[Rfam]
RNA sequence: UGUUUUAUAUCACCCACGAUAAGCCCCGGAAUCUUAUUGUGUAACACGAUAUAGAAG
Numbered sequence: 001u002g003u004u005u006u007a008u009a010u011c012a013c014c015c016a017c018g019a020u021a022a023g024c025c026c027c028g029g030a031a032u033c034u035u036a037u038u039g040u041g042u043a044a045c046a047c048g049a050u051a052u053a054g055a056a057g
Stems, first nucleotide, its partner, number of pairs: 006053006015041009

This 57-nucleotide RNA sequence from Staphylococcus saprophyticus belongs to the Rfam family "Ribosomal protein L13 leader". A reference for the family is Zengel and Lindahl (1994), "Diverse mechanisms for regulating ribosomal protein synthesis in Escherichia coli", Prog Nucleic Acid Res Mol Biol. Rfam describes the family as follows. This family is a putative r-protein leader autoregulatory structure found in B. subtilis and other low-GC Gram-positive bacteria. It is located in the 5' untranslated regions of mRNAs encoding the L13-S9 (rplM-rpsI) ribosomal protein operon. A search with the family's covariance model found it, with a score of 54 bits.